[Rfam]
RNA sequence: AGCUCGUAGUUGAACCUUGGCGUUGGUUGCCCGGUCCGCCUAACGGCGAGUACUGACGCGACCAGCGCUUCCUUCUGGCUUACCUUGUGCCUUUAACCGGGUGCAAGGGAACCAGGACUUUUACUGUGAAGAAAUUAGAGUGUUCAAAGCAGGCUCACGCUCGAAUAUUUUAGCAUGGAAUAAUGAAAUAGGACGUGUGGUUCUAUUUUGUUGGUUUCUAGGACCGCCGUAAUGAUUAAUAGGGACAGACGGGGGCAUCAGUAUUCAGUAGUCAGAGGUGAAAUUCUUGGAUUUACUGAAGACUAACUACUGCGAAAGCAUUUGCCAAGGAUGUUUUCAUUAAUCAAGAACGAAA
Numbered sequence: 001a002g003c004u005c006g007u008a009g010u011u012g013a014a015c016c017u018u019g020g021c022g023u024u025g026g027u028u029g030c031c032c033g034g035u036c037c038g039c040c041u042a043a044c045g046g047c048g049a050g051u052a053c054u055g056a057c058g059c060g061a062c063c064a065g066c067g068c069u070u071c072c073u074u075c076u077g078g079c080u081u082a083c084c085u086u087g088u089g090c091c092u093u094u095a096a097c098c099g100g101g102u103g104c105a106a107g108g109g110a111a112c113c114a115g116g117a118c119u120u121u122u123a124c125u126g127u128g129a130a131g132a133a134a135u136u137a138g139a140g141u142g143u144u145c146a147a148a149g150c151a152g153g154c155u156c157a158c159g160c161u162c163g164a165a166u167a168u169u170u171u172a173g174c175a176u177g178g179a180a181u182a183a184u185g186a187a188a189u190a191g192g193a194c195g196u197g198u199g200g201u202u203c204u205a206u207u208u209u210g211u212u213g214g215u216u217u218c219u220a221g222g223a224c225c226g227c228c229g230u231a232a233u234g235a236u237u238a239a240u241a242g243g244g245a246c247a248g249a250c251g252g253g254g255g256c257a258u259c260a261g262u263a264u265u266c267a268g269u270a271g272u273c274a275g276a277g278g279u280g281a282a283a284u285u286c287u288u289g290g291a292u293u294u295a296c297u298g299a300a301g302a303c304u305a306a307c308u309a310c311u312g313c314g315a316a317a318g319c320a321u322u323u324g325c326c327a328a329g330g331a332u333g334u335u336u337u338c339a340u341u342a343a344u345c346a347a348g349a350a351c352g353a354a355a
Base pairs, nucleotide, nucleotide: 002351004349005348009344010343011342242338243337244336245335246333247332250329254326255325256324257323260304261303264300265299266298267297268296269295270294271293275286276285277284312319313318
RNA: Eukaryotic small subunit ribosomal RNA, nucleotides 1035 to 1389
Organism: Tortispora caseinolytica